RNA sequence: AAACGUUCAUCUCGUUUUACGAGCCGCAUUAAGAUUGAAGCCAAGGAACGGGGACUUCAG
Numbered sequence: 001a002a003a004c005g006u007u008c009a010u011c012u013c014g015u016u017u018u019a020c021g022a023g024c025c026g027c028a029u030u031a032a033g034a035u036u037g038a039a040g041c042c043a044a045g046g047a048a049c050g051g052g053g054a055c056u057u058c059a060g
Stems, first nucleotide, its partner, number of pairs: 004050005011023004035060006041053002

A member of the RNA family "Glutamine-II riboswitch aptamer", 60 nucleotides long. Pairs were carried over by alignment from the consensus structure, which is taken from published work. For this family Rfam cites "Structure and ligand binding of the glutamine-II riboswitch" (Huang et al., Nucleic Acids Res, 2019).